[Rfam]
RNA sequence: UCUAACAAUAUAUUUGCAGGUUUUAGGUCUAAGUGGUGAAUAUCGAUCUCUGAAUAUAUUGAUAACCUUCACAAAUUUGCUGAUUAUUUUGUAGAGCUAUUAUUGUCCCACAUGCAUAUCCAUGACUAAAAAAAGCAAAAAAGUAAUAAUGGGGUGUUGUGUUCUCACAAAGAAAGAUGGAAAAGUUUAACAAAAACUUGUGAAGGAAGAUGAAUGCUUUGAUUAUGCAUGAAUCCAUAAUGAUAAAGUGCUAUUGAAUGAUCAAGUAAUUUGUAAGGUUUUUAUUAUCUUCGCAAGAGUUGUAUUGUUAAUUUAGACCUAGACAUGCAAGUAUAUUUCUAGG
Numbered sequence: 001u002c003u004a005a006c007a008a009u010a011u012a013u014u015u016g017c018a019g020g021u022u023u024u025a026g027g028u029c030u031a032a033g034u035g036g037u038g039a040a041u042a043u044c045g046a047u048c049u050c051u052g053a054a055u056a057u058a059u060u061g062a063u064a065a066c067c068u069u070c071a072c073a074a075a076u077u078u079g080c081u082g083a084u085u086a087u088u089u090u091g092u093a094g095a096g097c098u099a100u101u102a103u104u105g106u107c108c109c110a111c112a113u114g115c116a117u118a119u120c121c122a123u124g125a126c127u128a129a130a131a132a133a134a135g136c137a138a139a140a141a142a143g144u145a146a147u148a149a150u151g152g153g154g155u156g157u158u159g160u161g162u163u164c165u166c167a168c169a170a171a172g173a174a175a176g177a178u179g180g181a182a183a184a185g186u187u188u189a190a191c192a193a194a195a196a197c198u199u200g201u202g203a204a205g206g207a208a209g210a211u212g213a214a215u216g217c218u219u220u221g222a223u224u225a226u227g228c229a230u231g232a233a234u235c236c237a238u239a240a241u242g243a244u245a246a247a248g249u250g251c252u253a254u255u256g257a258a259u260g261a262u263c264a265a266g267u268a269a270u271u272u273g274u275a276a277g278g279u280u281u282u283u284a285u286u287a288u289c290u291u292c293g294c295a296a297g298a299g300u301u302g303u304a305u306u307g308u309u310a311a312u313u314u315a316g317a318c319c320u321a322g323a324c325a326u327g328c329a330a331g332u333a334u335a336u337u338u339c340u341a342g343g
Base pairs, nucleotide, nucleotide: 002342003341004340007337008336009335010334011333012332013331014330015329016328017327018326020324021323022322023321025320026319027318028317029316030315031314032313033312034311039306040305041304042303044302045301046300048299049298050297051296052292053291054290056288057287058286060284061283062282064280065279066278067277068276069275071274072273073272074271075270076269077268079267080266081265082263083262084261085260086259087258088257089256091254092253093252094251096249097248098247099244100243101242102241103240104239105238106237111231112230113229114228115227116226117225118224121221122220152219153218154217155216156215157214158213159211160210162208163207164206165203166202167201168200169199184198185197186196187195188194
RNA: MIR5048 microRNA precursor family